[Rfam]
RNA sequence: GUUAUUUGAGGUGGAGGAGUUCGUCCGGUCCACACGCCGAUGGUAUGACAGGGGUAACCCGAGAGAUGCAGGAGAAACGGACGCCUGCCAAAUAAC
Dot-bracket structure: ((((((((..(((((.......[[[[[.))))).((((..............))).......)....(((((.....]]]]].)))))))))))))
skipping-rope RNA: a 96-nucleotide RNA from Lachnospiraceae bacterium MD329. Pairs were carried over by alignment from the consensus structure, which is taken from published work. The organism belongs to Lachnospiraceae, within Bacteria. It is annotated as a small RNA.